RNA sequence: UGAUUCUGGUCGCUGAGUUUCUUGGGGAUGACUACCAAGAAAGCGGGGGAACCAACAAGUGGCGCGGGAAGCGGUGUGAGAGCCGUCUUCGCCGUCACAGGGGUGAAUCGGCGUGCGAAAAUCCAUAGUUUUUCGUACCCGUAGGGCGACUCUCACCGCCCGAAUCCGACAGCUAACCUCGUAAGCGUAACACGGCAUUCGA
Dot-bracket structure: ..........((((...((((((((.........))))))))((((((....(..............................................)(((.....(((...........................)))..((((..........))))...))).........)))))).))))...............
Numbered sequence: 001u002g003a004u005u006c007u008g009g010u011c012g013c014u015g016a017g018u019u020u021c022u023u024g025g026g027g028a029u030g031a032c033u034a035c036c037a038a039g040a041a042a043g044c045g046g047g048g049g050a051a052c053c054a055a056c057a058a059g060u061g062g063c064g065c066g067g068g069a070a071g072c073g074g075u076g077u078g079a080g081a082g083c084c085g086u087c088u089u090c091g092c093c094g095u096c097a098c099a100g101g102g103g104u105g106a107a108u109c110g111g112c113g114u115g116c117g118a119a120a121a122u123c124c125a126u127a128g129u130u131u132u133u134c135g136u137a138c139c140c141g142u143a144g145g146g147c148g149a150c151u152c153u154c155a156c157c158g159c160c161c162g163a164a165u166c167c168g169a170c171a172g173c174u175a176a177c178c179u180c181g182u183a184a185g186c187g188u189a190a191c192a193c194g195g196c197a198u199u200c201g202a
Stems, first nucleotide, its partner, number of pairs: 011187004018042008043182006053100001101167003109141003144161004
Rfam assigns this 202-nucleotide sequence from Paenibacillus ginsengarvi to the family "c-di-AMP riboswitch aptamer (ydaO/yuaA leader)". NCBI's taxonomy places the organism under Bacteria, Bacillati, Bacilli, Paenibacillaceae, Paenibacillus. Rfam's curators write: This family represents a conserved RNA structure found upstream of the ydaO and yuaA genes in Bacillus subtilis and related genes in other bacteria. The ydaO/yuaA element is thought to act as a genetic 'off' switch for the ydaO and yuaA genes in its native state. It is believed that the element may be triggered during osmotic shock leading to activation of ydaO, a predicted amino acid transporter gene, and members of the yuaA-yubG operon which code for KtrA and KtrB K+ transporters.